[Rfam]
The family of this 120-nucleotide RNA sequence from Microvirga sp. VF16 is "Group II catalytic intron D1-D4-2".

RNA sequence: GAGGGUUGGCCCCUCGAGGUCUGCAGUCAGGUGCCGGCCUCAAACCCCUGCAAGCUGCGGUCGUCAAGAGCGACCGUGGUGAGCGUUGCAGCCAAAGGCGGGACCUCAGUCCCGUCAGGU
Number, nucleotide and partner (000 for none) at each position: 001g015002a014003g013004g012005g011006u000007u000008g000009g000010c000011c005012c004013c003014u002015c001016g041017a040018g039019g038020u037021c036022u000023g034024c033025a032026g000027u000028c000029a000030g000031g000032u025033g024034c023035c000036g021037g020038c019039c018040u017041c016042a000043a000044a000045c000046c119047c000048c091049u090050g089051c088052a087053a086054g080055c079056u000057g077058c076059g075060g000061u073062c072063g071064u070065c000066a000067a000068g000069a000070g064071c063072g062073a061074c000075c059076g058077u057078g000079g055080u054081g000082a000083g000084c000085g000086u053087u052088g051089c050090a049091g048092c000093c000094a000095a000096a000097g116098g115099c114100g113101g112102g111103a000104c000105c000106u000107c000108a000109g000110u000111c102112c101113c100114g099115u098116c097117a000118g000119g046120u000
Rfam describes the family as follows. Group II introns are found in rRNA, tRNA and mRNA of organelles in fungi, plants and protists, and also in mRNA in bacteria.